[Rfam]
RNA sequence: GCGGCAUGGUGGCCCCGUUCGUCGGACGAGCGUGCCUAGGCUAUCGGCCGCGCGCUCCUCCGUCGAACGGUGCCUGCCGUGUCGC
Numbered sequence: 001g002c003g004g005c006a007u008g009g010u011g012g013c014c015c016c017g018u019u020c021g022u023c024g025g026a027c028g029a030g031c032g033u034g035c036c037u038a039g040g041c042u043a044u045c046g047g048c049c050g051c052g053c054g055c056u057c058c059u060c061c062g063u064c065g066a067a068c069g070g071u072g073c074c075u076g077c078c079g080u081g082u083c084g085c
Base pairs, nucleotide, nucleotide: 001085002084003083004082005081006080007079008078010076012074014072015070016069017068018067019066020065021064023062024061025060028057029056030055031054032053033052034051035050037046
Rfam assigns this 85-nucleotide RNA from Triticum aestivum to the family "MIR9657 microRNA precursor family". NCBI's taxonomy places the organism under Eukaryota, Viridiplantae, Streptophyta, commelinids, Triticum.